A member of the RNA family "Soft rot Enterobacteriaceae Rev 39 5'UTR" from Rouxiella badensis, 310 nucleotides long. The family's RNA type in Rfam is cis-regulatory element. From bacteria cultured under starvation conditions. The literature on the family includes a 2016 paper in BMC Genomics by Kwenda et al., "Discovery and profiling of small RNAs responsive to stress conditions in the plant pathogen Pectobacterium atrosepticum". Rfam links the family to the GO term cellular response to starvation. Pairs were carried over by alignment from the consensus structure, which was predicted with RNAfold. A search with the family's covariance model found it, with a score of 152 bits.
RNA sequence: AAGUGUUGUCAUUGAACUUAUAACUGUGAUAACUCUGUAGGCAAUCGUUCGUAAGAAGAAUUUAAGAACCCAAAAAAUGAAAGCUCUCGUCCUCGUGCUAAGCCUAGUCGUAAUUCGUGUGGUGGUGAUUAUUAUCCCACCGUGCGGGGCUGCACUUGGACGAAGAAAGGCUUACUAAACAAGCCUGAAGCUGAAAAGAACCCCCGCACCGAAAGGUCCGGGGGUUUUUUUUUAGCCAGGUAAAAAUGUAGCGGAAUGAGGCGGGAGAAAAUAUGAACAACAGCAUAAUAUUCUGCGCUAAUGACAAAAA
Numbered sequence: 001a002a003g004u005g006u007u008g009u010c011a012u013u014g015a016a017c018u019u020a021u022a023a024c025u026g027u028g029a030u031a032a033c034u035c036u037g038u039a040g041g042c043a044a045u046c047g048u049u050c051g052u053a054a055g056a057a058g059a060a061u062u063u064a065a066g067a068a069c070c071c072a073a074a075a076a077a078u079g080a081a082a083g084c085u086c087u088c089g090u091c092c093u094c095g096u097g098c099u100a101a102g103c104c105u106a107g108u109c110g111u112a113a114u115u116c117g118u119g120u121g122g123u124g125g126u127g128a129u130u131a132u133u134a135u136c137c138c139a140c141c142g143u144g145c146g147g148g149g150c151u152g153c154a155c156u157u158g159g160a161c162g163a164a165g166a167a168a169g170g171c172u173u174a175c176u177a178a179a180c181a182a183g184c185c186u187g188a189a190g191c192u193g194a195a196a197a198g199a200a201c202c203c204c205c206g207c208a209c210c211g212a213a214a215g216g217u218c219c220g221g222g223g224g225u226u227u228u229u230u231u232u233u234a235g236c237c238a239g240g241u242a243a244a245a246a247u248g249u250a251g252c253g254g255a256a257u258g259a260g261g262c263g264g265g266a267g268a269a270a271a272u273a274u275g276a277a278c279a280a281c282a283g284c285a286u287a288a289u290a291u292u293c294u295g296c297g298c299u300a301a302u303g304a305c306a307a308a309a310a
Stems, first nucleotide, its partner, number of pairs: 005033008016021001038073001040071002045065001047063001049059002085259002090254002093244001098239002102237001104235004109119003121141005127136003142161002145158004163192001169186002172183002195230012208217003261296006273286003